[Rfam]
RNA sequence: UAAAGAGAUUGUCUCCGAACCGUCCCGCCUAACAGGUUAACCUCACGGCGGUCGGUCUAUGGGUGCGGUUGGAAACGACCCUGCCUCCCGGAUUGGAAAGGGGAUUCUGUUAAAACCAG
Numbered sequence: 001u002a003a004a005g006a007g008a009u010u011g012u013c014u015c016c017g018a019a020c021c022g023u024c025c026c027g028c029c030u031a032a033c034a035g036g037u038u039a040a041c042c043u044c045a046c047g048g049c050g051g052u053c054g055g056u057c058u059a060u061g062g063g064u065g066c067g068g069u070u071g072g073a074a075a076c077g078a079c080c081c082u083g084c085c086u087c088c089c090g091g092a093u094u095g096g097a098a099a100g101g102g103g104a105u106u107c108u109g110u111u112a113a114a115a116c117c118a119g
Stems, first nucleotide, its partner, number of pairs: 006110001011105006019056004024051002027049003034043003061086005067080005087096002
Shown here is a 119-nucleotide RNA from Malonomonas rubra, a member of the family "Molybdenum/Tungsten riboswitch aptamer (Moco RNA motif)". The organism belongs to Malonomonas rubra, within Bacteria. The match comes from Rfam's covariance-model search (71 bits). The literature on the family includes a 2008 paper in Mol Microbiol by Regulski et al., "in molybdenum cofactor and tungsten cofactor metabolism".